[Rfam]
RNA sequence: CUGGUGGCAGCGCUCGCGGGUCAGCGACAGACACACCAGGCCACGCGCGUGGGUGACCAUGAAGUUGAUGUCGGACGGCUUGACCAGCUCGGCGGCCAUGAUCA
Numbered sequence: 001c002u003g004g005u006g007g008c009a010g011c012g013c014u015c016g017c018g019g020g021u022c023a024g025c026g027a028c029a030g031a032c033a034c035a036c037c038a039g040g041c042c043a044c045g046c047g048c049g050u051g052g053g054u055g056a057c058c059a060u061g062a063a064g065u066u067g068a069u070g071u072c073g074g075a076c077g078g079c080u081u082g083a084c085c086a087g088c089u090c091g092g093c094g095g096c097c098a099u100g101a102u103c104a
Base pairs, nucleotide, nucleotide: 003058004057005056007054008053011026012025013024014023035050036049040046041045066104067103068102069101072095074093076091077090078088079087080086
This 104-nucleotide sequence from Novilysobacter concretionis belongs to the Rfam family "Vibrio RNA AS9".
The family's RNA type in Rfam is antisense RNA.
About the family: Identified by direct cloning an parallel sequencing experiments with 5S/tRNA depletion. Confirmed by Northern blot.
It scores 50 bits against the family's covariance model.